[Rfam]
Shown here is a 106-nucleotide RNA from Roseburia sp. CAG:182, a member of the family "SAM riboswitch aptamer (S box leader)".
RNA sequence: CUCUUAUUCAGAGUGAUGGAGAUACAUAGGAUCGAUGAAGUCACGGCAACCCCUCUUUACGGAAGGUGCCAACCUGAGCGAGUAUUUAUGGCAGCGCAGAUCAGGA
Numbered sequence: 001c002u003c004u005u006a007u008u009c010a011g012a013g014u015g016a017u018g019g020a021g022a023u024a025c026a027u028a029g030g031a032u033c034g035a036u037g038a039a040g041u042c043a044c045g046g047c048a049a050c051c052c053c054u055c056u057u058u059a060c061g062g063a064a065g066g067u068g069c070c071a072a073c074c075u076g077a078g079c080g081a082g083u084a085u086u087u088a089u090g091g092c093a094g095c096g097c098a099g100a101u102c103a104g105g106a
Base pairs, nucleotide, nucleotide: 002106003105004104005103008100013044014043015042016041017040021033022032023031027078030075045070046069047068048067050066051065052062053061074099079096080095
Lineage of the source: Bacteria > Clostridia > Lachnospirales > Lachnospiraceae > Roseburia.